[Rfam]
RNA: c-di-AMP riboswitch aptamer (ydaO/yuaA leader)
RNA sequence: AAAGAAUAAUCGCUGAAUUCGCUUUUGAAGCGGGGGAACCAAUAUUUUGGGGUGAAUCCUUUAGAGGACGGGCAUAACCCUUUAGCCCGAACCCGACAGCUAACCUCGUAAGCGUAUUAAAGGGGGCAU
Numbered sequence: 001a002a003a004g005a006a007u008a009a010u011c012g013c014u015g016a017a018u019u020c021g022c023u024u025u026u027g028a029a030g031c032g033g034g035g036g037a038a039c040c041a042a043u044a045u046u047u048u049g050g051g052g053u054g055a056a057u058c059c060u061u062u063a064g065a066g067g068a069c070g071g072g073c074a075u076a077a078c079c080c081u082u083u084a085g086c087c088c089g090a091a092c093c094c095g096a097c098a099g100c101u102a103a104c105c106u107c108g109u110a111a112g113c114g115u116a117u118u119a120a121a122g123g124g125g126g127c128a129u
Stems, first nucleotide, its partner, number of pairs: 011114004018029003030109006040049002050094003058067003070088004